Overview: This 84-nucleotide sequence from Chaetura pelagica belongs to the Rfam family "mir-184 microRNA precursor family". A reference for the family is Chen et al. (2005), "The developmental miRNA profiles of zebrafish as determined by small RNA cloning", Genes Dev. Lineage of the source: Eukaryota > Metazoa > Tetrapoda > Coelurosauria > Chaetura.
RNA sequence: CCACUCUCGUCUCCUUAUCACUUUUCCAGCCCAGCUUCUGCACUGUAACUGUUGGACGGAGAACUGAUAAGGGUAUGUGAGUGA
Dot-bracket structure: ...........(((((((((.((((((..((......................))..)))))).)))))))))...........